[Rfam]
A member of the RNA family "Potassium channel RNA editing signal" from Sciurus carolinensis, 114 nucleotides long.
NCBI's taxonomy places the organism under Eukaryota, Gnathostomata, Theria, Euarchontoglires, Sciurus.
The match comes from Rfam's covariance-model search (109 bits).
For this family Rfam cites "Control of human potassium channel inactivation by editing of a small mRNA hairpin" (Bhalla et al., Nat Struct Mol Biol, 2004).
The family's RNA type in Rfam is cis-regulatory element.
Pairs were carried over by alignment from the consensus structure, which is taken from published work.
Rfam 15.1 lists 14,095 matches to the family in 1,000 species.
RNA sequence: GUUGGCUAUGGCGACAUGGCACCUGUCACUGUGGGUGGCAAGAUAGUGGGCUCUCUGUGUGCCAUUGCUGGUGUGCUGACCAUUUCCUUGCCUGUACCAGUCAUUGUCUCCAAC
Numbered sequence: 001g002u003u004g005g006c007u008a009u010g011g012c013g014a015c016a017u018g019g020c021a022c023c024u025g026u027c028a029c030u031g032u033g034g035g036u037g038g039c040a041a042g043a044u045a046g047u048g049g050g051c052u053c054u055c056u057g058u059g060u061g062c063c064a065u066u067g068c069u070g071g072u073g074u075g076c077u078g079a080c081c082a083u084u085u086c087c088u089u090g091c092c093u094g095u096a097c098c099a100g101u102c103a104u105u106g107u108c109u110c111c112a113a114c
Base pairs, nucleotide, nucleotide: 001114002113004111005110008107009106010105011104013102014101015100018097021095022094037077038076039075040074049063050062051061